[Rfam]
RNA sequence: AACGAUACUUUGCAGGACAGACCUCGGAAAUCUUAGCAAGCAAAGCACGGUGAUAGAGUGCCCGAUUUCUGUAUAUUUGUGCAGAAAUAUGGGCGUUCUCCGUAGGCUUGCUAGAGGGUUUCGGCUCUUACCUCUCCGAGGGGGUGUUCUGCAUGCGGGGAGCGACCAUAUUUCUUGCUUCCCUCUUUUAGAAUCAUUGCUUUA
Numbered sequence: 001a002a003c004g005a006u007a008c009u010u011u012g013c014a015g016g017a018c019a020g021a022c023c024u025c026g027g028a029a030a031u032c033u034u035a036g037c038a039a040g041c042a043a044a045g046c047a048c049g050g051u052g053a054u055a056g057a058g059u060g061c062c063c064g065a066u067u068u069c070u071g072u073a074u075a076u077u078u079g080u081g082c083a084g085a086a087a088u089a090u091g092g093g094c095g096u097u098c099u100c101c102g103u104a105g106g107c108u109u110g111c112u113a114g115a116g117g118g119u120u121u122c123g124g125c126u127c128u129u130a131c132c133u134c135u136c137c138g139a140g141g142g143g144g145u146g147u148u149c150u151g152c153a154u155g156c157g158g159g160g161a162g163c164g165a166c167c168a169u170a171u172u173u174c175u176u177g178c179u180u181c182c183c184u185c186u187u188u189u190a191g192a193a194u195c196a197u198u199g200c201u202u203u204a
Stems, first nucleotide, its partner, number of pairs: 012152008022141006034113008046105001047103002049100002056098009065088007114129006131144003155189001157187004162182001164180002167177002
Pedo-repair RNA: a 204-nucleotide RNA sequence from Pedobacter sp. BAL39. NCBI's taxonomy places the organism under Bacteria, Pseudomonadati, Sphingobacteriales, Sphingobacteriaceae, Pedobacter. The base pairs follow the family's consensus structure, which is taken from published work.